[Rfam]
RNA sequence: CAGCGGUUUGCAUAUAUGCCGAAGACAGUAGGUGCCACAUGGCGUAAACGUAAGACGACCUACCGAGGGGAUCUUUAUCAAGAUUAUUUUGACCGUAUCUCUCUGUCUUUGCAGGGAGUUUUUUAUUUGUUACA
Numbered sequence: 001c002a003g004c005g006g007u008u009u010g011c012a013u014a015u016a017u018g019c020c021g022a023a024g025a026c027a028g029u030a031g032g033u034g035c036c037a038c039a040u041g042g043c044g045u046a047a048a049c050g051u052a053a054g055a056c057g058a059c060c061u062a063c064c065g066a067g068g069g070g071a072u073c074u075u076u077a078u079c080a081a082g083a084u085u086a087u088u089u090u091g092a093c094c095g096u097a098u099c100u101c102u103c104u105g106u107c108u109u110u111g112c113a114g115g116g117a118g119u120u121u122u123u124u125a126u127u128u129g130u131u132a133c134a
Stems, first nucleotide, its partner, number of pairs: 028063006034043003099118008